RNA sequence: UGGGCUUCAUUUUCAAUCAAAUUUCUUAAUUUAGCUUGCACUGAGAUUCAUCUGUGUUAGGCUAUGACCGAUUGGAGCCCAGAGAUUUGUUCUCCUCGCUAUCCUGUGCUUCCUCCAUGUUGCAUCAGGACGUCGGGGAACUACAUUC
Numbered sequence: 001u002g003g004g005c006u007u008c009a010u011u012u013u014c015a016a017u018c019a020a021a022u023u024u025c026u027u028a029a030u031u032u033a034g035c036u037u038g039c040a041c042u043g044a045g046a047u048u049c050a051u052c053u054g055u056g057u058u059a060g061g062c063u064a065u066g067a068c069c070g071a072u073u074g075g076a077g078c079c080c081a082g083a084g085a086u087u088u089g090u091u092c093u094c095c096u097c098g099c100u101a102u103c104c105u106g107u108g109c110u111u112c113c114u115c116c117a118u119g120u121u122g123c124a125u126c127a128g129g130a131c132g133u134c135g136g137g138g139a140a141c142u143a144c145a146u147u148c
Stems, first nucleotide, its partner, number of pairs: 001082001003079003008074002011071001017070001024067002032064007042056002089141007097132002102130005112119001
This 148-nucleotide sequence from Morella rubra belongs to the Rfam family "Small nucleolar RNA snoR136". For this family Rfam cites "Mining small RNA sequencing data: a new approach to identify small nucleolar RNAs in Arabidopsis" (Chen and Wu, Nucleic Acids Res, 2009).